RNA: Small Cajal body specific RNA 8
Organism: Tenebrio molitor
RNA sequence: AGGAACAACGAUACGUGUGCUGGCGUUGAGUUUCGCAAGCGCAUCACUGGGAGUUCCAAUAGAAAGGUGCUUUCUGAUGACUUCGGUUUGUCGAGCUUUGAACCGAGGACAGAUACGAAGCCUACAAUU
Numbered sequence: 001a002g003g004a005a006c007a008a009c010g011a012u013a014c015g016u017g018u019g020c021u022g023g024c025g026u027u028g029a030g031u032u033u034c035g036c037a038a039g040c041g042c043a044u045c046a047c048u049g050g051g052a053g054u055u056c057c058a059a060u061a062g063a064a065a066g067g068u069g070c071u072u073u074c075u076g077a078u079g080a081c082u083u084c085g086g087u088u089u090g091u092c093g094a095g096c097u098u099u100g101a102a103c104c105g106a107g108g109a110c111a112g113a114u115a116c117g118a119a120g121c122c123u124a125c126a127a128u129u
Stems, first nucleotide, its partner, number of pairs: 002057005015044004023036003067123001069121005081108003086103004